[Rfam]
This 156-nucleotide sequence from Klebsiella pneumoniae belongs to the Rfam family "Bacterial antisense RNA HPnc0260". The sequence is in the family's curated seed alignment. For this family Rfam cites "The primary transcriptome of the major human pathogen Helicobacter pylori" (Sharma et al., Nature, 2010). The family's consensus secondary structure was predicted with CMfinder. The source organism's lineage runs through Bacteria, Pseudomonadota, Klebsiella pneumoniae complex, Klebsiella pneumoniae and Klebsiella pneumoniae subsp. pneumoniae.
RNA sequence: UGUGGACUAGUAUGGACUAUGCAAGGAAAACGCUUUGCCAAUACACAACAUUUUAAUGUCAGCAAUACCAACGGGGAGCAGGUGAUAAAAUUCAGGAAUUACAGAAGGAAAAAUGAUUGGUGCGUCUGAAUGGACUCGAACCAUCGACCCCCACCA
Numbered sequence: 001u002g003u004g005g006a007c008u009a010g011u012a013u014g015g016a017c018u019a020u021g022c023a024a025g026g027a028a029a030a031c032g033c034u035u036u037g038c039c040a041a042u043a044c045a046c047a048a049c050a051u052u053u054u055a056a057u058g059u060c061a062g063c064a065a066u067a068c069c070a071a072c073g074g075g076g077a078g079c080a081g082g083u084g085a086u087a088a089a090a091u092u093c094a095g096g097a098a099u100u101a102c103a104g105a106a107g108g109a110a111a112a113a114u115g116a117u118u119g120g121u122g123c124g125u126c127u128g129a130a131u132g133g134a135c136u137c138g139a140a141c142c143a144u145c146g147a148c149c150c151c152c153a154c155c156a
Stems, first nucleotide, its partner, number of pairs: 020045002026039001029036001062079002118153003122149001127146002130144004